[Rfam]
RNA: mir-1234 microRNA precursor family
Organism: Pan troglodytes
RNA sequence: UGGGGGGGGCCGGGGACGGCUUGGGCCUGCCUAGUCGGCCUGACCACCCACCCCACA
Numbered sequence: 001u002g003g004g005g006g007g008g009g010c011c012g013g014g015g016a017c018g019g020c021u022u023g024g025g026c027c028u029g030c031c032u033a034g035u036c037g038g039c040c041u042g043a044c045c046a047c048c049c050a051c052c053c054c055a056c057a
Stems, first nucleotide, its partner, number of pairs: 001055005007049003011042004017037005023032003